[Rfam]
RNA sequence: AAAUUGUGAUGUGGGCACUGUUUCUGGAGGUCCUUGAAGCGCUCCCACGCCUCAUGAAGUGGCUCGUUUGGCUGUUGGGCAAAAGAAACAAUCUGGGACCAAAACU
Numbered sequence: 001a002a003a004u005u006g007u008g009a010u011g012u013g014g015g016c017a018c019u020g021u022u023u024c025u026g027g028a029g030g031u032c033c034u035u036g037a038a039g040c041g042c043u044c045c046c047a048c049g050c051c052u053c054a055u056g057a058a059g060u061g062g063c064u065c066g067u068u069u070g071g072c073u074g075u076u077g078g079g080c081a082a083a084a085g086a087a088a089c090a091a092u093c094u095g096g097g098a099c100c101a102a103a104a105c106u
Base pairs, nucleotide, nucleotide: 001106004103005101006100058073060071
The family of this 106-nucleotide RNA sequence from Striga asiatica is "Plant small nucleolar RNA R71". Rfam classes the family as a C/D-box small nucleolar RNA.